[Rfam]
RNA sequence: UUUUCUGAGAAUUUGAUCUUGGUUCAGAUUGAACGCUGGCGGCGUGGAUGAGGCAUGCAAGUCGAACGGAGCAAUUGUUUCGACGAUUGUUUAGUGGCGGAAGGGUUAGUAAUGCAUAGAUAAUUUGUCCUUAACUUGGGAAUAACGGUUGGAAACGGCCGCUAAUACCGAAUGUGGCGAUAUUUGGGCAUCCGAGUAACGUUAAAGAAGGGGAUCUUAGGACCUUUCGGUUAAGGGAGAGUCUAUGUGAUAUCAGCUAGUUGGUGGGGUAAAGGCCUACCAAGGCUAUGACGUCUAGGCGGAUUGAGAGAUUGGCCGCCAACACUGGGACUGAGACACUGCCCAGACUCCUACGGGAGGCUGCAGUCGAGAAUCUUUCGCAAUGGACGGAAGUCUGACGAAGCGACGCCGCGUGUGUGAUGAAGGCUCUAGGGUUGUAAAGCACUUUCGCUUGGGAAUAAGAGAAGACGGUUAAUACCCGCUGGAUUUGAGCGUACCAGGUAAAGAAGCACCGGCUAACUCCGUGCCAGCAGCUGCGGUAAUACGGAGGGUGCUAGCGUUAAUCGGAUUUAUUG
Numbered sequence: 001u002u003u004u005c006u007g008a009g010a011a012u013u014u015g016a017u018c019u020u021g022g023u024u025c026a027g028a029u030u031g032a033a034c035g036c037u038g039g040c041g042g043c044g045u046g047g048a049u050g051a052g053g054c055a056u057g058c059a060a061g062u063c064g065a066a067c068g069g070a071g072c073a074a075u076u077g078u079u080u081c082g083a084c085g086a087u088u089g090u091u092u093a094g095u096g097g098c099g100g101a102a103g104g105g106u107u108a109g110u111a112a113u114g115c116a117u118a119g120a121u122a123a124u125u126u127g128u129c130c131u132u133a134a135c136u137u138g139g140g141a142a143u144a145a146c147g148g149u150u151g152g153a154a155a156c157g158g159c160c161g162c163u164a165a166u167a168c169c170g171a172a173u174g175u176g177g178c179g180a181u182a183u184u185u186g187g188g189c190a191u192c193c194g195a196g197u198a199a200c201g202u203u204a205a206a207g208a209a210g211g212g213g214a215u216c217u218u219a220g221g222a223c224c225u226u227u228c229g230g231u232u233a234a235g236g237g238a239g240a241g242u243c244u245a246u247g248u249g250a251u252a253u254c255a256g257c258u259a260g261u262u263g264g265u266g267g268g269g270u271a272a273a274g275g276c277c278u279a280c281c282a283a284g285g286c287u288a289u290g291a292c293g294u295c296u297a298g299g300c301g302g303a304u305u306g307a308g309a310g311a312u313u314g315g316c317c318g319c320c321a322a323c324a325c326u327g328g329g330a331c332u333g334a335g336a337c338a339c340u341g342c343c344c345a346g347a348c349u350c351c352u353a354c355g356g357g358a359g360g361c362u363g364c365a366g367u368c369g370a371g372a373a374u375c376u377u378u379c380g381c382a383a384u385g386g387a388c389g390g391a392a393g394u395c396u397g398a399c400g401a402a403g404c405g406a407c408g409c410c411g412c413g414u415g416u417g418u419g420a421u422g423a424a425g426g427c428u429c430u431a432g433g434g435u436u437g438u439a440a441a442g443c444a445c446u447u448u449c450g451c452u453u454g455g456g457a458a459u460a461a462g463a464g465a466a467g468a469c470g471g472u473u474a475a476u477a478c479c480c481g482c483u484g485g486a487u488u489u490g491a492g493c494g495u496a497c498c499a500g501g502u503a504a505a506g507a508a509g510c511a512c513c514g515g516c517u518a519a520c521u522c523c524g525u526g527c528c529a530g531c532a533g534c535u536g537c538g539g540u541a542a543u544a545c546g547g548a549g550g551g552u553g554c555u556a557g558c559g560u561u562a563a564u565c566g567g568a569u570u571u572a573u574u575g
Stems, first nucleotide, its partner, number of pairs: 009025005027565004032561006039412006045405002052368003056365003061098003066095002069091002072089007105323003114248008124240002129236007137171001139169002146161006177202003181198003185194003207228006249295003256286003261283008298320004302313004325346005348359004376402001378401003384397005415445004425436004449506001450502006459492001465488002509554005520549005530537002
Source information
A member of the RNA family "Bacterial small subunit ribosomal RNA" from Chlamydia trachomatis, 575 nucleotides of a longer RNA. Taxonomically the source falls in Chlamydia trachomatis (Bacteria, Chlamydiota, Chlamydiales, Chlamydiaceae). A reference for the family is Cannone et al. (2002), "The comparative RNA web (CRW) site: an online database of comparative sequence and structure information for ribosomal, intron, and other RNAs", BMC Bioinformatics.